This 56-nucleotide RNA from Nitratireductor pacificus belongs to the Rfam family "sul1 RNA".
Rfam 15.1 lists 519 matches to the family in 480 species.
NCBI's taxonomy places the organism under Bacteria, Alphaproteobacteria, Phyllobacteriaceae, Nitratireductor, Nitratireductor pacificus.
The family's consensus secondary structure is taken from published work.
The family's RNA type in Rfam is riboswitch.
It scores 71 bits against the family's covariance model.
RNA sequence: CCUGGACCCGGUGAAAAUCCGGGUGGCUCCGCCGGCCGCUGAUCCGCCGGUCAAUC
Numbered sequence: 001c002c003u004g005g006a007c008c009c010g011g012u013g014a015a016a017a018u019c020c021g022g023g024u025g026g027c028u029c030c031g032c033c034g035g036c037c038g039c040u041g042a043u044c045c046g047c048c049g050g051u052c053a054a055u056c
Stems, first nucleotide, its partner, number of pairs: 006024006012017001031051006